[Rfam]
RNA: Streptomyces sRNA 4677
RNA sequence: UGCUUCGGUGGCACGGGCCGUCUUUUCCAAAGAACUCACAGGUGAAAGAACCCCCACCAAGCCCCACCCCUCCCGCCCGCCGAGCGGCCUCACCCUCGCGAGUGAACAUCGCCAACUCGGCUGGCGCCGGGACCCGUUGCGCGCCUUACUCUCAGCGCAACACAACCGCAGACAUGCGACGGCCCCCGCCGGGACGGCAAUCCCAGUGCGAGGGCCUGACCACCGAGGAAGGUAAGGACUUCCCG
Numbered sequence: 001u002g003c004u005u006c007g008g009u010g011g012c013a014c015g016g017g018c019c020g021u022c023u024u025u026u027c028c029a030a031a032g033a034a035c036u037c038a039c040a041g042g043u044g045a046a047a048g049a050a051c052c053c054c055c056a057c058c059a060a061g062c063c064c065c066a067c068c069c070c071u072c073c074c075g076c077c078c079g080c081c082g083a084g085c086g087g088c089c090u091c092a093c094c095c096u097c098g099c100g101a102g103u104g105a106a107c108a109u110c111g112c113c114a115a116c117u118c119g120g121c122u123g124g125c126g127c128c129g130g131g132a133c134c135c136g137u138u139g140c141g142c143g144c145c146u147u148a149c150u151c152u153c154a155g156c157g158c159a160a161c162a163c164a165a166c167c168g169c170a171g172a173c174a175u176g177c178g179a180c181g182g183c184c185c186c187c188g189c190c191g192g193g194a195c196g197g198c199a200a201u202c203c204c205a206g207u208g209c210g211a212g213g214g215c216c217u218g219a220c221c222a223c224c225g226a227g228g229a230a231g232g233u234a235a236g237g238a239c240u241u242c243c244c245g
Stems, first nucleotide, its partner, number of pairs: 007224004016077003020074001090105004095100001120156005181216005187210003191204004227243005